Shown here is a 60-nucleotide RNA from Mus musculus, a member of the family "U7 small nuclear RNA". Rfam's curators write: Animal histone pre-mRNAs are spliced by a different mechanism than nuclear pre-mRNAs and self-splicing introns. It scores 35 bits against the family's covariance model. A reference for the family is Spycher et al. (1994), "3' end processing of mouse histone pre-mRNA: evidence for additional base-pairing between U7 snRNA and pre-mRNA", Nucleic Acids Res. Lineage of the source: Eukaryota > Chordata > Theria > Myomorpha > Mus.
[Rfam]
RNA sequence: AAGCACAGCUCUUUUAGAAUUUUUUCUAGUGGCUUUUCUGACCUUGGUUGGAAAAUCCAA
Numbered sequence: 001a002a003g004c005a006c007a008g009c010u011c012u013u014u015u016a017g018a019a020u021u022u023u024u025u026c027u028a029g030u031g032g033c034u035u036u037u038c039u040g041a042c043c044u045u046g047g048u049u050g051g052a053a054a055a056u057c058c059a060a
Base pairs, nucleotide, nucleotide: 032057034055035054036053037052038051039050040049041048042047
The base pairs follow the family's consensus structure, which was predicted with PFOLD.